[Rfam]
RNA sequence: AAAAAUCUUCAGGGCAGGGUGAAAUUCCCGAUCGGCGGUGAUAGUCCGCGACUCGUGCAAACGAUUGAUUUAGUGAAAUUCUAAAACCGACUGUAUAGUCAGGAUGAAAGAAGAUGAGU
Numbered sequence: 001a002a003a004a005a006u007c008u009u010c011a012g013g014g015c016a017g018g019g020u021g022a023a024a025u026u027c028c029c030g031a032u033c034g035g036c037g038g039u040g041a042u043a044g045u046c047c048g049c050g051a052c053u054c055g056u057g058c059a060a061a062c063g064a065u066u067g068a069u070u071u072a073g074u075g076a077a078a079u080u081c082u083a084a085a086a087c088c089g090a091c092u093g094u095a096u097a098g099u100c101a102g103g104a105u106g107a108a109a110g111a112a113g114a115u116g117a118g119u
Stems, first nucleotide, its partner, number of pairs: 005115006017029003031099002033089002035049004044087002053064002069085005091102003
RNA: FMN riboswitch aptamer (RFN element)
Organism: Aerococcus suis